[Rfam]
Rfam assigns this 84-nucleotide RNA sequence from Camphora micrantha to the family "Small nucleolar RNA Z102/R77". Its family is annotated with nucleolus and RNA processing in the Gene Ontology. For this family Rfam cites "Identification of 66 box C/D snoRNAs in Arabidopsis thaliana: extensive gene duplications generated multiple isoforms predicting new ribosomal RNA 2'-O-methylation sites" (Barneche et al., J Mol Biol, 2001). Rfam classes the family as a C/D-box small nucleolar RNA. Lineage of the source: Eukaryota > Embryophyta > Spermatophyta > Magnoliidae > Camphora.
RNA sequence: GAGUGAGAUGAUGAUUUUUGUUUCCCUAUUGGUUUGAUUGCUGAUAUGAUGGCAUUCAUAUGUAUUAGCUCUAUCUGAUCACUC
Numbered sequence: 001g002a003g004u005g006a007g008a009u010g011a012u013g014a015u016u017u018u019u020g021u022u023u024c025c026c027u028a029u030u031g032g033u034u035u036g037a038u039u040g041c042u043g044a045u046a047u048g049a050u051g052g053c054a055u056u057c058a059u060a061u062g063u064a065u066u067a068g069c070u071c072u073a074u075c076u077g078a079u080c081a082c083u084c
Base pairs, nucleotide, nucleotide: 002083003082004081005080036056039054040053041052042051